[Rfam]
RNA sequence: CCGCUCCGCGAAAAGUGGCCCUUGUGGCCGCCUGCCCCCAUCUAUAAGCGAUGGAUCGGGCUAGCGGGGUGGGUUGUU
Numbered sequence: 001c002c003g004c005u006c007c008g009c010g011a012a013a014a015g016u017g018g019c020c021c022u023u024g025u026g027g028c029c030g031c032c033u034g035c036c037c038c039c040a041u042c043u044a045u046a047a048g049c050g051a052u053g054g055a056u057c058g059g060g061c062u063a064g065c066g067g068g069g070u071g072g073g074u075u076g077u078u
Base pairs, nucleotide, nucleotide: 001072002071003070004069005068006067007066008065009064015031016030017029018028019027020026034061035060036059037058
Background: DUF3800-IX RNA: a 78-nucleotide sequence. The family's consensus secondary structure is taken from published work. It is annotated as a small RNA. Rfam's curators write: Actinobacteria, Firmicutes (1 example), Nitrospirae, Proteobacteria, Verrucomicrobia (1 example).